Background:
A member of the RNA family "Bradyrhizobiaceae sRNA BjrC80" from Afipia sp. GAS231, 159 nucleotides long. A search with the family's covariance model found it, with a score of 132 bits. On this family, see Madhugiri et al., RNA Biol 2012: "Small RNAs of the Bradyrhizobium/Rhodopseudomonas lineage and their analysis". Rfam classes the family as a small RNA.

[Rfam]
RNA sequence: AGAUGGAAGGUUUCGCCGGCAUUGUCGCCCCCGCCGACGGCUCCUUCCGGGGAGCGGGUCAAAAGCUCGCUCCCACUGGCUCCCUUUCGAUGGAAUACGCCCCCCUCCGUCGGAAGGGUCUAGGGGCGGCGGAGUCCCCCAGCUCCGCCGCCCGCUUUU
Numbered sequence: 001a002g003a004u005g006g007a008a009g010g011u012u013u014c015g016c017c018g019g020c021a022u023u024g025u026c027g028c029c030c031c032c033g034c035c036g037a038c039g040g041c042u043c044c045u046u047c048c049g050g051g052g053a054g055c056g057g058g059u060c061a062a063a064a065g066c067u068c069g070c071u072c073c074c075a076c077u078g079g080c081u082c083c084c085u086u087u088c089g090a091u092g093g094a095a096u097a098c099g100c101c102c103c104c105c106u107c108c109g110u111c112g113g114a115a116g117g118g119u120c121u122a123g124g125g126g127c128g129g130c131g132g133a134g135u136c137c138c139c140c141a142g143c144u145c146c147g148c149c150g151c152c153c154g155c156u157u158u159u
Stems, first nucleotide, its partner, number of pairs: 009044002013040003017036004050074009060065001083117002087113004092108003124153012